[Rfam]
RNA sequence: GUGUCAGUAAUGGCAUAGAUGAAGGAAGCGCAUAGCAAAGUUCCCCCGCCUACGAACAGAAACUUGAUAAGGCGAUGAGGUGGGUAAGGUUGCCUAACAAACCGAAGCCCAAAAGGUAAACGUAUAACCAAAAUUGUAAAUCAAGAGGUUGUGGAAUGAAAGAUUAGUGU
Number, nucleotide and partner (000 for none) at each position: 001g016002u015003g014004u013005c012006a011007g000008u000009a000010a000011u006012g005013g004014c003015a002016u001017a000018g000019a000020u000021g000022a000023a000024g000025g000026a000027a000028g170029c169030g168031c167032a000033u000034a000035g000036c162037a000038a000039a000040g157041u156042u155043c154044c153045c000046c000047c000048g149049c148050c147051u146052a000053c000054g000055a000056a000057c000058a000059g000060a000061a000062a000063c145064u144065u143066g142067a141068u000069a000070a000071g000072g137073c136074g135075a000076u132077g000078a000079g129080g128081u127082g110083g109084g108085u107086a000087a000088g103089g102090u101091u100092g000093c000094c000095u000096a000097a000098c000099a000100a091101a090102c089103c088104g000105a000106a000107g085108c084109c083110c082111a000112a000113a000114a000115g000116g000117u000118a000119a000120a000121c000122g000123u000124a000125u000126a000127a081128c080129c079130a000131a000132a076133a000134u000135u074136g073137u072138a000139a000140a000141u067142c066143a065144a064145g063146a051147g050148g049149u048150u000151g000152u000153g044154g043155a042156a041157u040158g000159a000160a000161a000162g036163a000164u000165u000166a000167g031168u030169g029170u028
RNA: Group II catalytic intron D1-D4-3